[Rfam]
The family of this 96-nucleotide sequence from Desulfobacter postgatei is "Group II catalytic intron D1-D4-1". Lineage of the source: Bacteria > Pseudomonadati > Desulfobacteraceae > Desulfobacter > Desulfobacter postgatei. Rfam links the family to the GO term Group II intron splicing. The pairing is the family consensus, mapped onto this sequence. About the family: Group II introns are found in rRNA, tRNA and mRNA of organelles in fungi, plants and protists, and also in mRNA in bacteria.
RNA sequence: CGCCUUUCAGGGUAACCUGUCUGGUGACAGAGCAGAAGUCAGCAGACGUCAUAGUAGCCAAACGCCGGGAGUAAUGUCCCGGACAUGGUGAAGGAC
Number, nucleotide and partner (000 for none) at each position: 001c026002g025003c000004c023005u000006u000007u000008c019009a018010g017011g016012g000013u000014a000015a000016c011017c010018u009019g008020u000021c000022u000023g004024g000025u002026g001027a000028c000029a000030g000031a000032g000033c000034a000035g000036a000037a000038g047039u046040c045041a000042g000043c000044a000045g040046a039047c038048g096049u095050c094051a000052u000053a000054g000055u000056a000057g089058c088059c087060a000061a000062a000063c000064g000065c000066c000067g000068g080069g079070a000071g000072u000073a000074a000075u000076g000077u000078c000079c069080c068081g000082g000083a000084c000085a000086u000087g059088g058089u057090g000091a000092a000093g000094g050095a049096c048